[Rfam]
RNA sequence: AAAUGAAAGCAGAAGCAACCCGCUUCUCGCCUUAGUGAUUCUAAUCACUGGGCUUGAUAUCGAAUUCGAUUAACAAUUGUGUUAAUCGCUAUAUCAGAGCGGGCGCUUGCGUCCGCUCUUUCUGCUUUUU
Numbered sequence: 001a002a003a004u005g006a007a008a009g010c011a012g013a014a015g016c017a018a019c020c021c022g023c024u025u026c027u028c029g030c031c032u033u034a035g036u037g038a039u040u041c042u043a044a045u046c047a048c049u050g051g052g053c054u055u056g057a058u059a060u061c062g063a064a065u066u067c068g069a070u071u072a073a074c075a076a077u078u079g080u081g082u083u084a085a086u087c088g089c090u091a092u093a094u095c096a097g098a099g100c101g102g103g104c105g106c107u108u109g110c111g112u113c114c115g116c117u118c119u120u121u122c123u124g125c126u127u128u129u130u
Base pairs, nucleotide, nucleotide: 011027012026013025014024015023016022029053030052031051035048036047037046038045039044098117099116100115101114102113103112104111105110